Small nucleolar RNA SNORA49: a 131-nucleotide RNA from Coregonus sp. 'balchen'. The source organism's lineage runs through Eukaryota, Eumetazoa, Vertebrata, Salmoniformes and Coregonus. It scores 36 bits against the family's covariance model. From the family's description: The snoRNA ACA49 has no identified RNA target. NB genomic sequence 1-nt different from published. By type it is an H/ACA-box small nucleolar RNA.
[Rfam]
RNA sequence: UUUCACCCUAUCUUACACCGGAACCUCUUGAAUCAGUGCAGUGUUCUGGCACUAUAAGGGGACAGAGUACUACGCUCACUUCACUUCCUACUGGAUGUUGGUUCUACUAGGGCCUUAAAGAAGCACACAGU
Numbered sequence: 001u002u003u004c005a006c007c008c009u010a011u012c013u014u015a016c017a018c019c020g021g022a023a024c025c026u027c028u029u030g031a032a033u034c035a036g037u038g039c040a041g042u043g044u045u046c047u048g049g050c051a052c053u054a055u056a057a058g059g060g061g062a063c064a065g066a067g068u069a070c071u072a073c074g075c076u077c078a079c080u081u082c083a084c085u086u087c088c089u090a091c092u093g094g095a096u097g098u099u100g101g102u103u104c105u106a107c108u109a110g111g112g113c114c115u116u117a118a119a120g121a122a123g124c125a126c127a128c129a130g131u
Stems, first nucleotide, its partner, number of pairs: 003062002006060004018049006025041002028038001074124002086112005092106004